Shown here is a 97-nucleotide RNA from Idiomarina tyrosinivorans, a member of the family "Bacterial small signal recognition particle RNA". About the family: The signal recognition particle (SRP) is a universally conserved ribonucleoprotein involved in the co-translational targeting of proteins to membranes. The family's RNA type in Rfam is non-coding RNA gene. The base pairs follow the family's consensus structure, which is taken from published work.

RNA sequence: UGCGGGUCCCCCCGCAACGUUAACCAGCGAACCCGGUCAGGCCCGGAAGGGAGCAGCCGUAGUUGGGGAUACGUGUGCCGGGGUGUGGCUGGUAGAG
Number, nucleotide and partner (000 for none) at each position: 001u000002g000003c000004g000005g090006g089007u088008c087009c000010c083011c082012c081013c080014g079015c075016a000017a074018c073019g072020u071021u000022a000023a000024c066025c065026a064027g063028c062029g000030a000031a000032c000033c000034c059035g058036g057037u056038c000039a000040g000041g000042c051043c050044c049045g000046g000047a000048a000049g044050g043051g042052a000053g000054c000055a000056g037057c036058c035059g034060u000061a000062g028063u027064u026065g025066g024067g000068g000069a000070u000071a020072c019073g018074u017075g015076u000077g000078c000079c014080g013081g012082g011083g010084u000085g000086u000087g008088g007089c006090u005091g000092g000093u000094a000095g000096a000097g000